Nucleotides: 123
Base pairs, nucleotide, nucleotide: 007026009024010023011022012021047077048076055074056073058071
Number, partner (000 for none) and nucleotide at each position: 001000g002000a003000a004000c005000c006000u007026g008000u009024c010023u011022g012021u013000a014000a015000a016000u017000a018000u019000g020000c021012g022011c023010g024009g025000u026007c027000a028000g029000g030000c031000u032000u033000g034000a035000u036000u037000u038000u039000a040000c041000g042000g043000c044000a045000u046000a047077u048076u049000a050000u051000g052000a053000g054000a055074g056073g057000a058071g059000u060000a061000u062000g063000a064000c065000u066000c067000a068000u069000g070000g071058c072000a073056c074055u075000a076048a077047g078000u079000g080000c081000a082000c083000a084000a085000g086000a087000a088000a089000a090000a091000g092000c093000g094000g095000c096000u097000a098000u099000c100000g101000u102000a103000g104000c105000c106000g107000a108000u109000u110000a111000c112000g113000c114000u115000c116000a117000g118000g119000g120000c121000g122000a123000a
This 123-nucleotide sequence from Umboniibacter marinipuniceus belongs to the Rfam family "Ribosomal S15 leader".
The E. coli Ribosomal S15 gene 5' UTR can form two alternative structures.
Clan: Ribosomal Protein S15 Leader clan.
Pairs were carried over by alignment from the consensus structure, which is taken from published work.
The match comes from Rfam's covariance-model search (56 bits).
Its family is annotated with regulation of translation, ncRNA-mediated in the Gene Ontology.